Source information: Rfam assigns this 116-nucleotide RNA from Escherichia coli to the family "Group II catalytic intron D1-D4-2". Group II introns are found in rRNA, tRNA and mRNA of organelles in fungi, plants and protists, and also in mRNA in bacteria. On this family, see Bonen and Vogel, Trends Genet 2001: "The ins and outs of group II introns". Its family is annotated with Group II intron splicing in the Gene Ontology. The base pairs follow the family's consensus structure. Rfam's curators put it in the seed alignment. NCBI's taxonomy places the organism under Bacteria, Pseudomonadati, Pseudomonadota, Gammaproteobacteria, Escherichia coli.
RNA sequence: GGUGGCAGGCCCACCGGGAUCUGCUGUCGGAAGUCGGUCCCAAACAACCCCGGCUGCUGUGGUAAAGAGCCAUGGUAGUGAGUGCAGGGGGAACGAUCAGACGCGAUCUGAUCCUG
Numbered sequence: 001g002g003u004g005g006c007a008g009g010c011c012c013a014c015c016g017g018g019a020u021c022u023g024c025u026g027u028c029g030g031a032a033g034u035c036g037g038u039c040c041c042a043a044a045c046a047a048c049c050c051c052g053g054c055u056g057c058u059g060u061g062g063u064a065a066a067g068a069g070c071c072a073u074g075g076u077a078g079u080g081a082g083u084g085c086a087g088g089g090g091g092a093a094c095g096a097u098c099a100g101a102c103g104c105g106a107u108c109u110g111a112u113c114c115u116g
Base pairs, nucleotide, nucleotide: 001015002014003013004012005011016041017040018039019038020037021036023034024033025032045116048090049089050088051087052085053079054078056076057075058074060072061071062070063069095113096112097111098110099109100108
Dot-bracket structure: (((((.....)))))((((((.(((......))).))))))...(..(((((((.(((.((((.....)))).))).)).....).))))....((((((.......))))))..)